Rfam assigns this 47-nucleotide sequence from Methanopyrus kandleri to the family "flpD RNA".
It is one of the family's seed sequences.
Taxonomically the source falls in Methanopyrus kandleri (Archaea, Methanopyri, Methanopyrales, Methanopyrus).
The family's RNA type in Rfam is cis-regulatory element.
[Rfam]
RNA sequence: CCGGAUGAUGGCCCGGGGGAACCCUAACGGGACCCCGGGCCGGACGG
Numbered sequence: 001c002c003g004g005a006u007g008a009u010g011g012c013c014c015g016g017g018g019g020a021a022c023c024c025u026a027a028c029g030g031g032a033c034c035c036c037g038g039g040c041c042g043g044a045c046g047g
Stems, first nucleotide, its partner, number of pairs: 001047003010041004016035003022031003